A member of the RNA family "Glycine riboswitch aptamer" from Jannaschia aquimarina, 94 nucleotides long. Rfam links the family to the GO term glycine biosynthetic process. Taxonomically the source falls in Jannaschia (Bacteria, Pseudomonadota, Rhodobacterales, Roseobacteraceae). A search with the family's covariance model found it, with a score of 61 bits. From the family's description: This family represents the bacterial glycine riboswitch.

[Rfam]
RNA sequence: UUGUCGUCAGCGGGAGAGACUCGGCCCCCGAGGCCGGGCACCGAAGGAGCAACCGCCCCGGAAACUCUCAGGUACCAGGGACCGCGGACAAGGU
Numbered sequence: 001u002u003g004u005c006g007u008c009a010g011c012g013g014g015a016g017a018g019a020c021u022c023g024g025c026c027c028c029c030g031a032g033g034c035c036g037g038g039c040a041c042c043g044a045a046g047g048a049g050c051a052a053c054c055g056c057c058c059c060g061g062a063a064a065c066u067c068u069c070a071g072g073u074a075c076c077a078g079g080g081a082c083c084g085c086g087g088a089c090a091a092g093g094u
Stems, first nucleotide, its partner, number of pairs: 006089003010085004020038006040073003043069002047067003053061002
Dot-bracket structure: .....(((.((((......((((((.......)))))).(((((..(((...((.....))...))))).)))........)))).))).....